RNA sequence: CGGGGUAAUGCAGGCACCCCUUUAGACGGUAAGCCGUCCAAGCGCUGC
Numbered sequence: 001c002g003g004g005g006u007a008a009u010g011c012a013g014g015c016a017c018c019c020c021u022u023u024a025g026a027c028g029g030u031a032a033g034c035c036g037u038c039c040a041a042g043c044g045c046u047g048c
Base pairs, nucleotide, nucleotide: 002020003019004018005017006016010048011047012046013045025038026037027036028035029034
Annotation
The record is a 48-nucleotide RNA, which matches "chrB-b RNA" in Rfam. The family's consensus secondary structure is taken from published work.